[Rfam]
A member of the RNA family "ROOL RNA", 594 nucleotides long.
RNA sequence: UCCUGCCAAUUUGAUAGCAGGUAACCUUGUGAAGAUGCUUGUUAAGCUGCAAGGAGUUAAGGUAUAUCAAUUCAGUUAUUGUAAGGAUACUUUCAAUAGGUGGAUUUAUUGUAGUAGUAAUAUUGCGAUAGAAGUGAGAAACUCACAACGAUAACUUAACGUGCUUAUUAUAUACGCUCAUAAAAACAUAAUUCUCUUGGUGGUAAUAAUAGACGCUCUCUGUGAGAGAAUAAUCUUAUAUGUUAGAUGUAGGGAUAUAUUUAACCUCUAUAAGAAAAUCCAAAUAAUGCCAUUGGUCGUGAACUUGAGAAAUCAAGGUAUAACAAGAGUUUAUAGUACGAGUAGCCAAAGACUAGAAUCAAUUCUUGAAUAUAUCUAAAGGGUAGAUAUGAUUAAAUAAACUAAUUCUGAAAAACUGGUGAAAGUUAGAGGUAGUCAAUCCUCUUCAAGUAUUAGUGUUUCGUCGCUAUGUAAAAUAUAGGGCAAGAAGCAUUAAGGUCGCUCCUUAAUGCUCAGACUUGUCUUCUUGGUGGUUGAAUAUAUGUGAAGUAUGUAAUCGGUAAGGUGAAGACCUACCUACUAUUCUAUUUAAUU
Numbered sequence: 001u002c003c004u005g006c007c008a009a010u011u012u013g014a015u016a017g018c019a020g021g022u023a024a025c026c027u028u029g030u031g032a033a034g035a036u037g038c039u040u041g042u043u044a045a046g047c048u049g050c051a052a053g054g055a056g057u058u059a060a061g062g063u064a065u066a067u068c069a070a071u072u073c074a075g076u077u078a079u080u081g082u083a084a085g086g087a088u089a090c091u092u093u094c095a096a097u098a099g100g101u102g103g104a105u106u107u108a109u110u111g112u113a114g115u116a117g118u119a120a121u122a123u124u125g126c127g128a129u130a131g132a133a134g135u136g137a138g139a140a141a142c143u144c145a146c147a148a149c150g151a152u153a154a155c156u157u158a159a160c161g162u163g164c165u166u167a168u169u170a171u172a173u174a175c176g177c178u179c180a181u182a183a184a185a186a187c188a189u190a191a192u193u194c195u196c197u198u199g200g201u202g203g204u205a206a207u208a209a210u211a212g213a214c215g216c217u218c219u220c221u222g223u224g225a226g227a228g229a230a231u232a233a234u235c236u237u238a239u240a241u242g243u244u245a246g247a248u249g250u251a252g253g254g255a256u257a258u259a260u261u262u263a264a265c266c267u268c269u270a271u272a273a274g275a276a277a278a279u280c281c282a283a284a285u286a287a288u289g290c291c292a293u294u295g296g297u298c299g300u301g302a303a304c305u306u307g308a309g310a311a312a313u314c315a316a317g318g319u320a321u322a323a324c325a326a327g328a329g330u331u332u333a334u335a336g337u338a339c340g341a342g343u344a345g346c347c348a349a350a351g352a353c354u355a356g357a358a359u360c361a362a363u364u365c366u367u368g369a370a371u372a373u374a375u376c377u378a379a380a381g382g383g384u385a386g387a388u389a390u391g392a393u394u395a396a397a398u399a400a401a402c403u404a405a406u407u408c409u410g411a412a413a414a415a416c417u418g419g420u421g422a423a424a425g426u427u428a429g430a431g432g433u434a435g436u437c438a439a440u441c442c443u444c445u446u447c448a449a450g451u452a453u454u455a456g457u458g459u460u461u462c463g464u465c466g467c468u469a470u471g472u473a474a475a476a477u478a479u480a481g482g483g484c485a486a487g488a489a490g491c492a493u494u495a496a497g498g499u500c501g502c503u504c505c506u507u508a509a510u511g512c513u514c515a516g517a518c519u520u521g522u523c524u525u526c527u528u529g530g531u532g533g534u535u536g537a538a539u540a541u542a543u544g545u546g547a548a549g550u551a552u553g554u555a556a557u558c559g560g561u562a563a564g565g566u567g568a569a570g571a572c573c574u575a576c577c578u579a580c581u582a583u584u585c586u587a588u589u590u591a592a593u594u
Stems, first nucleotide, its partner, number of pairs: 008590002011587001013585002017581001020578002025054005037047003056160006070105005077098005083092003106131011134146005169556001185541001186535001189335002194329006200293006216228004234275006242265004247260003253281003294355005304317005339425001345420004407517004429445001431443002447529003481525003486520002490513001492510007563574004
Background
Rfam describes the family as follows. Firmicutes, Fusobacteria (1 example), Tenericutes (1 example).